[Rfam]
RNA sequence: CAAGUCCCGGCAUGGUAAGGGUUAACCACCCACCAUUACCGAGUGUUGCGCCUCUGGCGGAGCGGUGACUGUGGUGCAAGCUACGGCACGCGCGAACAAAAGAGGUGAAGCGUACACAGGGUAUGUUAUAGGCCGGAUGGGGUCGCAGCCCCUUAGAGUUGGUAUCGCUUCGAAAAGUCGUUCCGGAUUGGUCAGCGUGGUAACGUGCGUGAAACCUAAAUGGACUGGGCGUAUUGGUGAGCCUGGAAAGAGCCGGCGGAGUUCUCAAGCU
Numbered sequence: 001c002a003a004g005u006c007c008c009g010g011c012a013u014g015g016u017a018a019g020g021g022u023u024a025a026c027c028a029c030c031c032a033c034c035a036u037u038a039c040c041g042a043g044u045g046u047u048g049c050g051c052c053u054c055u056g057g058c059g060g061a062g063c064g065g066u067g068a069c070u071g072u073g074g075u076g077c078a079a080g081c082u083a084c085g086g087c088a089c090g091c092g093c094g095a096a097c098a099a100a101a102g103a104g105g106u107g108a109a110g111c112g113u114a115c116a117c118a119g120g121g122u123a124u125g126u127u128a129u130a131g132g133c134c135g136g137a138u139g140g141g142g143u144c145g146c147a148g149c150c151c152c153u154u155a156g157a158g159u160u161g162g163u164a165u166c167g168c169u170u171c172g173a174a175a176a177g178u179c180g181u182u183c184c185g186g187a188u189u190g191g192u193c194a195g196c197g198u199g200g201u202a203a204c205g206u207g208c209g210u211g212a213a214a215c216c217u218a219a220a221u222g223g224a225c226u227g228g229g230c231g232u233a234u235u236g237g238u239g240a241g242c243c244u245g246g247a248a249a250g251a252g253c254c255g256g257c258g259g260a261g262u263u264c265u266c267a268a269g270c271u
Base pairs, nucleotide, nucleotide: 012036013035014034015033019031020030021029022028023240025238026237039120040119043117044116045115046114047112048111049107050106051105052104053103054102055101059097164265167262168261169260170259171258172257183256184255185254186253188252189251190216191215192214195210196209197208198207221250225246226245227244228243229242230241